[Rfam]
A member of the RNA family "mir-130 microRNA precursor family" from Ornithorhynchus anatinus, 82 nucleotides long. Gene Ontology terms of the family: RISC complex and miRNA-mediated post-transcriptional gene silencing. Lineage of the source: Eukaryota > Bilateria > Chordata > Prototheria > Ornithorhynchus. The literature on the family includes a 2002 paper in Curr Biol by Lagos-Quintana et al., "Identification of tissue-specific microRNAs from mouse".
RNA sequence: UUCAAGCUCGUGCUCUUUCCACUGGGCCACACUGCUUAAGUGUGGAACAGCGUGGCUUAGUGGAAAAAGCAUAGGCUUGGGA
Numbered sequence: 001u002u003c004a005a006g007c008u009c010g011u012g013c014u015c016u017u018u019c020c021a022c023u024g025g026g027c028c029a030c031a032c033u034g035c036u037u038a039a040g041u042g043u044g045g046a047a048c049a050g051c052g053u054g055g056c057u058u059a060g061u062g063g064a065a066a067a068a069g070c071a072u073a074g075g076c077u078u079g080g081g082a
Stems, first nucleotide, its partner, number of pairs: 001082003005077004010072001012070003016066004022060009